RNA sequence: ACAAGUUUGAGGCCAUAGCAGAAGUGAUAAGGUGCGGCCUGUCAGAUUCCAAUGGAUCUGUGAAUUCUGCU
Numbered sequence: 001a002c003a004a005g006u007u008u009g010a011g012g013c014c015a016u017a018g019c020a021g022a023a024g025u026g027a028u029a030a031g032g033u034g035c036g037g038c039c040u041g042u043c044a045g046a047u048u049c050c051a052a053u054g055g056a057u058c059u060g061u062g063a064a065u066u067c068u069g070c071u
Stems, first nucleotide, its partner, number of pairs: 011039004017071007024035003043060007

A member of the RNA family "Mammalian CPEB3 ribozyme" from Crocodylus porosus, 71 nucleotides long. A search with the family's covariance model found it, with a score of 45 bits.